[Rfam]
A member of the RNA family "PyrR binding site" from Andreesenella acetica, 109 nucleotides long. Rfam's curators write: This family represents the PyrR binding site and terminator structure. This RNA structure is found upstream of a variety of genes involved in pyrimidine biosynthesis and transport. The alignment also includes a portion of the antiterminator structure. The family has 41 seed sequences and 1,498 matches in Rfam 15.1. The organism belongs to Andreesenella, within Bacteria. It is annotated as a cis-regulatory element. A search with the family's covariance model found it, with a score of 58 bits.
RNA sequence: AGUAUCUUUAAUUCAGUCCAGUGAGGCUGGUAAGAUGGUUAUAUAUAAUUGCAAUAGUAGAUUAUAGGAUAAUUAUGACUUCUUGCCGGCGGCUAAGAAGUUUUUUUAU
Numbered sequence: 001a002g003u004a005u006c007u008u009u010a011a012u013u014c015a016g017u018c019c020a021g022u023g024a025g026g027c028u029g030g031u032a033a034g035a036u037g038g039u040u041a042u043a044u045a046u047a048a049u050u051g052c053a054a055u056a057g058u059a060g061a062u063u064a065u066a067g068g069a070u071a072a073u074u075a076u077g078a079c080u081u082c083u084u085g086c087c088g089g090c091g092g093c094u095a096a097g098a099a100g101u102u103u104u105u106u107u108a109u
Stems, first nucleotide, its partner, number of pairs: 003037006013030006039072004044066006050059003075104001077102009087092001